[Rfam]
RNA sequence: ACUCGGGCACGACCCGCGCUCAUGCGCUCGGGACCGACCCGAUGUGAUCAACCUAAGGGA
Numbered sequence: 001a002c003u004c005g006g007g008c009a010c011g012a013c014c015c016g017c018g019c020u021c022a023u024g025c026g027c028u029c030g031g032g033a034c035c036g037a038c039c040c041g042a043u044g045u046g047a048u049c050a051a052c053c054u055a056a057g058g059g060a
Stems, first nucleotide, its partner, number of pairs: 001045002004041004013032004018027002
Shown here is a 60-nucleotide sequence from Corynebacterium urealyticum, a member of the family "L31-Corynebacteriaceae ribosomal protein leader". The literature on the family includes a 2020 paper in BMC Microbiol by Eckert and Weinberg, "Discovery of 20 novel ribosomal leader candidates in bacteria and archaea". Lineage of the source: Bacteria > Actinomycetes > Mycobacteriales > Corynebacterium > Corynebacterium urealyticum. It is annotated as a cis-regulatory leader. The family's consensus secondary structure is taken from published work.